[Rfam]
ZMP/ZTP riboswitch aptamer (pfl RNA motif): a 93-nucleotide sequence from Actinacidiphila rubida.
RNA sequence: ACGGCGAGCCGUGACUGGCGCGCAGGGAUGGGGUCAACCAUCGGGGAGCGGCUCGUCGCCACCACACAUGUGCCGUGCGCCUGGGCCGUCCCG
Number, nucleotide and partner (000 for none) at each position: 001a000002c000003g057004g056005c055006g054007a053008g052009c051010c050011g049012u048013g000014a000015c045016u044017g081018g080019c079020g078021c077022g000023c000024a000025g000026g000027g000028a041029u040030g039031g038032g000033g000034u000035c000036a000037a000038c031039c030040a029041u028042c000043g000044g016045g015046g000047a000048g012049c011050g010051g009052c008053u007054c006055g005056u004057c003058g000059c000060c000061a000062c000063c000064a000065c000066a000067c000068a000069u000070g000071u000072g086073c085074c084075g000076u000077g021078c020079g019080c018081c017082u000083g000084g074085g073086c072087c000088g000089u000090c000091c000092c000093g000
Pairs were carried over by alignment from the consensus structure, which is taken from published work.